[Rfam]
RNA sequence: UAGUUUCUUCGUUAGGUGAGGCUUCUACAUAGACAUAUGCCACUGCCCGGACUGUCGAGAGACUCUAACGGGCCAACAGGUUCUACCGGCUUAAGGUUUUACCUAAUGUGGCUGGGUUAAUUAACCCUAGCUAUGUAUGUGCUAAAGCUUGUACGAGUGAAGAAGGUA
Number, nucleotide and partner (000 for none) at each position: 001u000002a000003g000004u000005u164006u163007c162008u161009u160010c159011g154012u153013u094014a000015g149016g148017u147018g000019a000020g143021g142022c141023u000024u000025c139026u137027a136028c135029a134030u133031a132032g131033a000034c000035a000036u000037a000038u000039g112040c111041c110042a109043c108044u000045g073046c072047c071048c070049g069050g000051a000052c000053u000054g063055u062056c061057g000058a000059g000060a000061g056062a055063c054064u000065c000066u000067a000068a000069c049070g048071g047072g046073c045074c000075a000076a000077c000078a000079g103080g102081u101082u000083c000084u000085a097086c096087c095088g000089g000090c000091u000092u000093a000094a013095g087096g086097u085098u000099u000100u000101a081102c080103c079104u000105a000106a000107u000108g043109u042110g041111g040112c039113u000114g126115g125116g000117u000118u000119a000120a000121u000122u000123a000124a000125c115126c114127c000128u000129a000130g000131c032132u031133a030134u029135g028136u027137a026138u000139g025140u000141g022142c021143u020144a000145a000146a000147g017148c016149u015150u000151g000152u000153a012154c011155g000156a000157g000158u000159g010160a009161a008162g007163a006164a005165g000166g000167u000168a000
RNA: M-box riboswitch aptamer (ykoK leader)